[Rfam]
RNA sequence: UAUGAUAAAGCCAAAACUGGAGUGAUCCAGUGACGGAAAGCUAUAGGGUCUCAUGAAGACAGCCAGUUACCUAAC
Numbered sequence: 001u002a003u004g005a006u007a008a009a010g011c012c013a014a015a016a017c018u019g020g021a022g023u024g025a026u027c028c029a030g031u032g033a034c035g036g037a038a039a040g041c042u043a044u045a046g047g048g049u050c051u052c053a054u055g056a057a058g059a060c061a062g063c064c065a066g067u068u069a070c071c072u073a074a075c
Base pairs, nucleotide, nucleotide: 004071011036012035016031017030018029019028020027021026034062039068040067041066042065046064047063048060049059050058

The record is a 75-nucleotide RNA sequence from Candidatus Izimoplasma sp. HR1, which matches "c-di-GMP-I-GGC riboswitch aptamer" in Rfam. The family's consensus secondary structure is taken from published work. A search with the family's covariance model found it, with a score of 59 bits. The source organism's lineage runs through Bacteria, Bacillati, Mycoplasmatota, Candidatus Izemoplasmatales and Candidatus Izemoplasma.